Shown here is an 80-nucleotide RNA sequence from Nocardiopsis ansamitocini, a member of the family "Actino-pnp RNA".
RNA sequence: GCCGGUCUUCGGUAGUGGUCUUCCGGAACUUCUCCGCUGCGGCGACGAGGGGCGCCGGGGGGCUUCGAUCGAUGGCCGGC
Numbered sequence: 001g002c003c004g005g006u007c008u009u010c011g012g013u014a015g016u017g018g019u020c021u022u023c024c025g026g027a028a029c030u031u032c033u034c035c036g037c038u039g040c041g042g043c044g045a046c047g048a049g050g051g052g053c054g055c056c057g058g059g060g061g062g063c064u065u066c067g068a069u070c071g072a073u074g075g076c077c078g079g080c
Stems, first nucleotide, its partner, number of pairs: 001080007009072005017064010

Pairs were carried over by alignment from the consensus structure, which is taken from published work.